[Rfam]
RNA sequence: GCUUAGGGACGACCCUAAACAUGCCUUAAUUUGGUAGGGGACGACCCCU
Number, nucleotide and partner (000 for none) at each position: 001g020002c000003u018004u017005a016006g015007g014008g013009a000010c000011g000012a000013c008014c007015c006016u005017a004018a003019a000020c001021a000022u000023g000024c000025c000026u000027u000028a000029a000030u000031u000032u000033g000034g000035u000036a049037g048038g047039g046040g045041a000042c000043g000044a000045c040046c039047c038048c037049u036
This 49-nucleotide RNA sequence from Shewanella baltica belongs to the Rfam family "Guanidine-II riboswitch aptamer (mini-ykkC)".
Rfam 15.1 lists 1,589 matches to the family in 1,229 species.
The base pairs follow the family's consensus structure, which is taken from published work.